Source information
A member of the RNA family "ASpks TB sRNA" from Streptomyces aizunensis, 75 nucleotides long. The base pairs follow the family's consensus structure, which is taken from published work. The organism belongs to Streptomyces, within Bacteria.

RNA sequence: CUUGAUGGAACCCAGCCACAGCGGACGGCCCGCGGGCCGGUCCUGCCCGUACGUCGCCAGCAGCGCCUGCGCCUC
Numbered sequence: 001c002u003u004g005a006u007g008g009a010a011c012c013c014a015g016c017c018a019c020a021g022c023g024g025a026c027g028g029c030c031c032g033c034g035g036g037c038c039g040g041u042c043c044u045g046c047c048c049g050u051a052c053g054u055c056g057c058c059a060g061c062a063g064c065g066c067c068u069g070c071g072c073c074u075c
Stems, first nucleotide, its partner, number of pairs: 016024002031071003038065002043060003047056001049054001